Ruegeria cis2 sRNA: a 155-nucleotide sequence from Wenxinia saemankumensis.
Gene Ontology term of the family: regulation of gene expression.
By type it is a small RNA.
The match comes from Rfam's covariance-model search (74 bits).
The base pairs follow the family's consensus structure, which was predicted with RNAfold.
The organism belongs to Wenxinia, within Bacteria.
RNA sequence: AUCGAGGUGUUGUGCGGGUUGUAGUUCAGGAAGACGAAGCCCCGGCACUGGUCGAUGAUGUGGAAGAGCGGGUUCCACGAGAACAGGACCAGCAUCGAGACCGGCAGCGAAUUGGCGACGAACAUCUUGCCGCUGAAGAUCAUGUUGGCCCGCCC
Numbered sequence: 001a002u003c004g005a006g007g008u009g010u011u012g013u014g015c016g017g018g019u020u021g022u023a024g025u026u027c028a029g030g031a032a033g034a035c036g037a038a039g040c041c042c043c044g045g046c047a048c049u050g051g052u053c054g055a056u057g058a059u060g061u062g063g064a065a066g067a068g069c070g071g072g073u074u075c076c077a078c079g080a081g082a083a084c085a086g087g088a089c090c091a092g093c094a095u096c097g098a099g100a101c102c103g104g105c106a107g108c109g110a111a112u113u114g115g116c117g118a119c120g121a122a123c124a125u126c127u128u129g130c131c132g133c134u135g136a137a138g139a140u141c142a143u144g145u146u147g148g149c150c151c152g153c154c155c
Stems, first nucleotide, its partner, number of pairs: 002037003008034001010032002013029001016026002039059001041057001043054004066155001068153003072084004089148007101135001102132006109125001112121003